RNA sequence: AUCACCUGGGGAUCUUGUUAAAAGGCAUGUUCUGGUUCAGAAUGUCCGGGUGCAGCCAGAGAGUCUGCAUUUCUAACUAGCACCCUGGUGAUGCUGA
Numbered sequence: 001a002u003c004a005c006c007u008g009g010g011g012a013u014c015u016u017g018u019u020a021a022a023a024g025g026c027a028u029g030u031u032c033u034g035g036u037u038c039a040g041a042a043u044g045u046c047c048g049g050g051u052g053c054a055g056c057c058a059g060a061g062a063g064u065c066u067g068c069a070u071u072u073c074u075a076a077c078u079a080g081c082a083c084c085c086u087g088g089u090g091a092u093g094c095u096g097a
Stems, first nucleotide, its partner, number of pairs: 003090003009084002014080002017077004021072003025068003029064001031062003

The family of this 97-nucleotide sequence from Diceros bicornis is "mir-544 microRNA precursor family". Its family is annotated with RISC complex and miRNA-mediated post-transcriptional gene silencing in the Gene Ontology. The family's consensus secondary structure was predicted with RNAalifold.